Small nucleolar RNA SNORA53: a 203-nucleotide sequence from Perca fluviatilis. From the family's description: The snoRNA ACA53 belongs to the H/ACA family of pseudouridylation guide snoRNAs. Its family is annotated with nucleolus and RNA processing in the Gene Ontology. It is annotated as an H/ACA-box small nucleolar RNA. The source organism's lineage runs through Eukaryota, Bilateria, Eupercaria, Perciformes and Perca. The family has 28 seed sequences and 1,090 matches in Rfam 15.1.
[Rfam]
Nucleotides: 203
Base pairs, nucleotide, nucleotide: 002103003102004101005100006099007098008097010091011090012089013088014087018085019084020083021082022081023080024079025078026055027054028053029052030050031049036046037045038044058071059070060069061068062067117198118197119196120195121194124191126189127188129186137181139179140178141177142176143175144174152172154167155166156165
Number, partner (000 for none) and nucleotide at each position: 001000a002103a003102c004101a005100c006099g007098c008097u009000c010091c011090u012089u013088a014087g015000a016000u017000c018085c019084a020083c021082c022081u023080c024079u025078g026055g027054a028053g029052g030050g031049c032000g033000c034000u035000g036046u037045g038044c039000u040000c041000u042000g043000a044038g045037c046036a047000g048000a049031g050030c051000u052029c053028c054027u055026c056000a057000u058071c059070a060069g061068c062067u063000u064000g065000c066000u067062g068061g069060c070059u071058g072000u073000a074000c075000a076000g077000u078025u079024g080023g081022a082021g083020g084019u085018g086000c087014u088013u089012g090011a091010g092000u093000c094000a095000u096000u097008g098007g099006c100005g101004u102003g103002u104000g105000a106000g107000a108000a109000c110000a111000g112000u113000c114000u115000a116000c117198c118197u119196g120195u121194c122000c123000c124191c125000c126189a127188g128000c129186c130000c131000a132000a133000c134000u135000g136000c137181a138000a139179c140178a141177c142176u143175g144174g145000c146000a147000a148000c149000c150000c151000u152172g153000u154167c155166c156165u157000c158000u159000g160000a161000a162000g163000a164000c165156a166155g167154g168000g169000a170000a171000c172152u173000c174144c175143c176142a177141g178140u179139g180000c181137u182000g183000c184000a185000a186129g187000c188127c189126u190000g191124g192000g193000g194121g195120a196119c197118g198117g199000a200000c201000a202000c203000a